Shown here is an 83-nucleotide sequence from Mycoplana azooxidifex, a member of the family "chrB-a RNA". The match comes from Rfam's covariance-model search (73 bits). The source organism's lineage runs through Bacteria, Pseudomonadati, Pseudomonadota, Alphaproteobacteria and Mycoplana. The family's RNA type in Rfam is cis-regulatory element.
[Rfam]
RNA sequence: UGUAUGGGGUCGCGAUCACCCCACGAGGCGUCAUGCUGAAGAAUCGCGUCCAACGAACCGUCAAAACGGAGGGACGCGCGAUG
Number, nucleotide and partner (000 for none) at each position: 001u000002g000003u000004a000005u023006g022007g021008g020009g019010u018011c000012g000013c000014g000015a000016u000017c000018a010019c009020c008021c007022c006023a005024c000025g000026a000027g000028g000029c000030g000031u000032c000033a000034u000035g000036c000037u000038g000039a000040a000041g000042a000043a000044u000045c000046g077047c076048g075049u074050c073051c072052a000053a000054c000055g000056a000057a000058c000059c000060g000061u000062c000063a000064a000065a000066a000067c000068g000069g000070a000071g000072g051073g050074a049075c048076g047077c046078g000079c000080g000081a000082u000083g000